This 63-nucleotide sequence from Mycolicibacterium smegmatis belongs to the Rfam family "Mycobacterium sRNA Ms_IGR-8". Taxonomically the source falls in Mycolicibacterium smegmatis (Bacteria, Actinomycetes, Mycobacteriales, Mycobacteriaceae).

RNA sequence: AGCGUUAACUAUUGCGAGUGUGAAACCUCUGCGAUUUUUUGGCGAUUUAUUCGCAGAGGUUUC
Numbered sequence: 001a002g003c004g005u006u007a008a009c010u011a012u013u014g015c016g017a018g019u020g021u022g023a024a025a026c027c028u029c030u031g032c033g034a035u036u037u038u039u040u041g042g043c044g045a046u047u048u049a050u051u052c053g054c055a056g057a058g059g060u061u062u063c
Stems, first nucleotide, its partner, number of pairs: 022063013035049001039045001
The literature on the family includes a 2013 paper in RNA by Li et al., "Identification of small RNAs in Mycobacterium smegmatis using heterologous Hfq".